Shown here is a 38-nucleotide RNA from Herpetosiphon aurantiacus, a member of the family "CRISPR RNA direct repeat element".
The organism belongs to Herpetosiphon aurantiacus, within Bacteria.

[Rfam]
RNA sequence: GUUUUAAUCCCCCAGAGAGGAUUCAGGUCUUUCGAAUA
Dot-bracket structure: ..............((((((.......)))))).....
Numbered sequence: 001g002u003u004u005u006a007a008u009c010c011c012c013c014a015g016a017g018a019g020g021a022u023u024c025a026g027g028u029c030u031u032u033c034g035a036a037u038a
Stems, first nucleotide, its partner, number of pairs: 015033006
It is one of the family's seed sequences.